[Rfam]
RNA sequence: AGCCACUUCAUUGGGGAGUAGCCGCCUUUUACGCAAGUUAAAAGGGUGAUGGUCAACAUAUUUGCUCAACCGAGCAUGGUCAUCAUAGCAAAGAACCAAAUGAGCUUAUUUAAAGCUUAUUUUUGUUGGCAAGACCUUUGAUU
Numbered sequence: 001a002g003c004c005a006c007u008u009c010a011u012u013g014g015g016g017a018g019u020a021g022c023c024g025c026c027u028u029u030u031a032c033g034c035a036a037g038u039u040a041a042a043a044g045g046g047u048g049a050u051g052g053u054c055a056a057c058a059u060a061u062u063u064g065c066u067c068a069a070c071c072g073a074g075c076a077u078g079g080u081c082a083u084c085a086u087a088g089c090a091a092a093g094a095a096c097c098a099a100a101u102g103a104g105c106u107u108a109u110u111u112a113a114a115g116c117u118u119a120u121u122u123u124u125g126u127u128g129g130c131a132a133g134a135c136c137u138u139u140g141a142u143u
Stems, first nucleotide, its partner, number of pairs: 026044003046086010063076005087142001089140005
The record is a 143-nucleotide RNA from Acinetobacter sp. TGL-Y2, which matches "Manganese Mn2+ riboswitch aptamer (yybP-ykoY)" in Rfam. Rfam's curators write: This RNA was originally discovered in E. coli during a large scale screen and was named SraF. The family was later found to exist upstream of related families of protein genes in many bacteria, including the the yybP and ykoK genes in B. subtilis. The specific functions of these proteins are unknown, but this structured RNA element may be involved in their genetic regulation as a riboswitch. Pairs were carried over by alignment from the consensus structure. Taxonomically the source falls in Acinetobacter (Bacteria, Pseudomonadota, Gammaproteobacteria, Moraxellales).